[Rfam]
RNA sequence: UUACCAGUCAGGCUCCUGGUUAGAGUCCAGCUCUCAGCUGGCACCUGGUCUAGCCAAAGCCUGACAAUAAG
Dot-bracket structure: ......(((.((((..((((((((..(((((.....))))).......)))))))).)))).)))......
mir-344 microRNA precursor family: a 71-nucleotide sequence from Peromyscus maniculatus. For this family Rfam cites "Small RNA expression and strain specificity in the rat" (Linsen et al., BMC Genomics, 2010). Taxonomically the source falls in Peromyscus maniculatus (Eukaryota, Eumetazoa, Teleostomi, Sarcopterygii). The family's consensus secondary structure was predicted with RNAalifold.